The record is a 303-nucleotide sequence from Salix purpurea, which matches "Plant signal recognition particle RNA" in Rfam. NCBI's taxonomy places the organism under Eukaryota, Spermatophyta, Magnoliopsida, Gunneridae, Salix.
[Rfam]
RNA sequence: GCUGAGCCUGGCAACGUGGGCUUGUAACCCGAGUGGGAGCUAUAAGGUGCUGGAACGUUGACUCAGCCCAGAUGGCCGGGUUUAGAAUAGCUUUGUUCUGGCCUGUCCGUUUCAAGCCGGGAGUUGAGCCAUGGCUUCCUCGUGAAGACGUGGGUGUCAUGGCUCCUAGAGUGGAGGGCACAGCGUGAGGCUGGUUUCACAGAGCAGCGAUUACUUCCCACUCUCGGCAGUGAAAGGAUUACGGGUCGGUGCUGUCUGAAUCCAUCUGGCUAGAUGGGCUGGUCUAACUGGACCAUCACUUUU
Numbered sequence: 001g002c003u004g005a006g007c008c009u010g011g012c013a014a015c016g017u018g019g020g021c022u023u024g025u026a027a028c029c030c031g032a033g034u035g036g037g038a039g040c041u042a043u044a045a046g047g048u049g050c051u052g053g054a055a056c057g058u059u060g061a062c063u064c065a066g067c068c069c070a071g072a073u074g075g076c077c078g079g080g081u082u083u084a085g086a087a088u089a090g091c092u093u094u095g096u097u098c099u100g101g102c103c104u105g106u107c108c109g110u111u112u113c114a115a116g117c118c119g120g121g122a123g124u125u126g127a128g129c130c131a132u133g134g135c136u137u138c139c140u141c142g143u144g145a146a147g148a149c150g151u152g153g154g155u156g157u158c159a160u161g162g163c164u165c166c167u168a169g170a171g172u173g174g175a176g177g178g179c180a181c182a183g184c185g186u187g188a189g190g191c192u193g194g195u196u197u198c199a200c201a202g203a204g205c206a207g208c209g210a211u212u213a214c215u216u217c218c219c220a221c222u223c224u225c226g227g228c229a230g231u232g233a234a235a236g237g238a239u240u241a242c243g244g245g246u247c248g249g250u251g252c253u254g255u256c257u258g259a260a261u262c263c264a265u266c267u268g269g270c271u272a273g274a275u276g277g278g279c280u281g282g283u284c285u286a287a288c289u290g291g292a293c294c295a296u297c298a299c300u301u302u303u
Stems, first nucleotide, its partner, number of pairs: 001040003004023007028037003044302006051295003056290002058287003061283003068277003073272005078263009088254003092251001098249009107237002110235005116228009126165010137154003141150003166171001173218005182211001184209003191202003
Rfam 15.1 lists 4,988 matches to the family in 266 species. Pairs were carried over by alignment from the consensus structure, which is taken from published work.